[Rfam]
A member of the RNA family "Plastid-psbA-3 3UTR RNA" from Nelumbo lutea, 56 nucleotides long.
About the family: Plastid psbA-3 is a non-coding RNA (ncRNA) present in plastids. It was identified in inverted repeat sequences in the 3 prime untranslate region (3UTR) of photosystem II quinone-binding protein (psbA).
It is annotated as a cis-regulatory element.
RNA sequence: AAGGAACAAUAUCCAAUUUCUUGUUCUAUCAAGAGGUUGGUAUUGUUCCUUUAUUU
Numbered sequence: 001a002a003g004g005a006a007c008a009a010u011a012u013c014c015a016a017u018u019u020c021u022u023g024u025u026c027u028a029u030c031a032a033g034a035g036g037u038u039g040g041u042a043u044u045g046u047u048c049c050u051u052u053a054u055u056u
Stems, first nucleotide, its partner, number of pairs: 001051013018035006
Dot-bracket structure: (((((((((((((....((((((......))))))...))))))))))))).....